[Rfam]
RNA sequence: GGCCUUGUGGCGCAACUGAAUAGCGCACCUGAUUACGGCUCAGGAGGUUCCAGGUUUGAAUCCUGGCAAGGUCA
Numbered sequence: 001g002g003c004c005u006u007g008u009g010g011c012g013c014a015a016c017u018g019a020a021u022a023g024c025g026c027a028c029c030u031g032a033u034u035a036c037g038g039c040u041c042a043g044g045a046g047g048u049u050c051c052a053g054g055u056u057u058g059a060a061u062c063c064u065g066g067c068a069a070g071g072u073c074a
Stems, first nucleotide, its partner, number of pairs: 001073007010026004028044005050066005
RNA: tRNA
Organism: Aequorivita ciconiae